[Rfam]
RNA: Phenylalanine leader peptide
Organism: Prodigiosinella confusarubida
RNA sequence: CAUGAAUCAAAAGUUGUUCUUCUUCGUAUUUUUUUUCAUUCUACCCGGCUGGGGGCAAUUGUCGUGUGAGUGAGAAUACGAAGACGAACAAAAAAGCCUCCUGAACUUAGGGGGCUUUUUUAUA
Number, nucleotide and partner (000 for none) at each position: 001c000002a000003u000004g000005a000006a000007u000008c000009a000010a000011a000012a000013g000014u000015u000016g089017u088018u087019c086020u000021u084022c083023u082024u081025c080026g079027u078028a077029u076030u075031u074032u073033u072034u000035u000036u069037c068038a067039u066040u000041c000042u053043a000044c000045c052046c000047g000048g000049c000050u000051g000052g045053g042054g063055g062056c061057a000058a000059u000060u000061g056062u055063c054064g000065u000066g039067u038068g037069a036070g000071u000072g033073a032074g031075a030076a029077u028078a027079c026080g025081a024082a023083g022084a021085c000086g019087a018088a017089c016090a000091a000092a000093a118094a117095a116096g115097c114098c113099u112100c111101c110102u109103g000104a000105a000106c000107u000108u000109a102110g101111g100112g099113g098114g097115c096116u095117u094118u093119u000120u000121u000122a000123u000124a000